[Rfam]
RNA sequence: UCGCGCACUGCGGGAGAGCGGGGCCGCAAACCCCCGCCGAAGGCGCAAACUCCCAUCAUCGCUCAGGCAAAAGGACCGCAGUCGCACG
Numbered sequence: 001u002c003g004c005g006c007a008c009u010g011c012g013g014g015a016g017a018g019c020g021g022g023g024c025c026g027c028a029a030a031c032c033c034c035c036g037c038c039g040a041a042g043g044c045g046c047a048a049a050c051u052c053c054c055a056u057c058a059u060c061g062c063u064c065a066g067g068c069a070a071a072a073g074g075a076c077c078g079c080a081g082u083c084g085c086a087c088g
Stems, first nucleotide, its partner, number of pairs: 007082007020034004036068003039064002043062003049056001
Source information: Rfam assigns this 88-nucleotide sequence from Caldimonas brevitalea to the family "Glycine riboswitch aptamer". Rfam links the family to the GO term glycine biosynthetic process. The base pairs follow the family's consensus structure.